[Rfam]
RNA: Streptomyces sRNA 4677
Nucleotides: 210
Stems, first nucleotide, its partner, number of pairs: 007191001009189002012069004075090006103129005149183005155177002159172004194208005
Number, partner (000 for none) and nucleotide at each position: 001000g002000g003000g004000u005000c006000c007191g008000g009189c010188g011000g012069g013068c014067c015066g016000c017000g018000a019000a020000c021000u022000c023000c024000c025000c026000c027000u028000a029000a030000g031000a032000a033000c034000c035000g036000g037000g038000g039000u040000a041000a042000a043000g044000a045000a046000c047000u048000c049000c050000c051000g052000c053000c054000c055000a056000c057000c058000c059000a060000c061000c062000c063000u064000u065000c066015c067014g068013g069012c070000u071000g072000c073000g074000g075090u076089c077088a078087c079086u080085c081000g082000u083000a084000c085080g086079g087078g088077u089076g090075a091000c092000c093000g094000g095000c096000u097000u098000g099000c100000g101000g102000g103129g104128g105127c106126g107125g108000c109000a110000u111000g112000a113000c114000g115000g116000u117000c118000g119000u120000u121000a122000c123000g124000u125107u126106c127105g128104c129103c130000g131000c132000a133000a134000c135000a136000a137000c138000c139000g140000c141000a142000a143000a144000a145000c146000g147000a148000c149183g150182g151181c152180c153179c154000c155177c156176g157000c158000c159172g160171g161170g162169a163000c164000g165000g166000c167000a168000a169162u170161c171160c172159c173000g174000a175000a176156c177155g178000a179153g180152g181151g182150c183149c184000u185000g186000a187000c188010c189009g190000a191007u192000c193000a194208g195207g196206a197205a198204g199000a200000g201000c202000c203000g204198c205197u206196u207195c208194c209000c210000g